Shown here is a 176-nucleotide RNA sequence from Lachnospiraceae bacterium KHCPX20, a member of the family "Lysine riboswitch aptamer". Rfam links the family to the GO term lysine biosynthetic process. A search with the family's covariance model found it, with a score of 110 bits.
[Rfam]
RNA sequence: AAUUCAGGUAGAGGUUGCGCUACGAAUAAGUACUCUGUCGGAUGUCGCAGUGGCAGGUGAUGAUAGACGAAAGGUCAAAGCGCCGAAAGAAGGCCGGGACUGCCAUCGGCAUUCUUGGGUACGGGUCGAACAGGCUCGUAACUGUCAUCUAAUGUAGAUGGGGCGCUAUCGAUGGU
Numbered sequence: 001a002a003u004u005c006a007g008g009u010a011g012a013g014g015u016u017g018c019g020c021u022a023c024g025a026a027u028a029a030g031u032a033c034u035c036u037g038u039c040g041g042a043u044g045u046c047g048c049a050g051u052g053g054c055a056g057g058u059g060a061u062g063a064u065a066g067a068c069g070a071a072a073g074g075u076c077a078a079a080g081c082g083c084c085g086a087a088a089g090a091a092g093g094c095c096g097g098g099a100c101u102g103c104c105a106u107c108g109g110c111a112u113u114c115u116u117g118g119g120u121a122c123g124g125g126u127c128g129a130a131c132a133g134g135c136u137c138g139u140a141a142c143u144g145u146c147a148u149c150u151a152a153u154g155u156a157g158a159u160g161g162g163g164c165g166c167u168a169u170c171g172a173u174g175g176u
Stems, first nucleotide, its partner, number of pairs: 007170005017083005024076002034067007087116005093110005117143002120140008145161007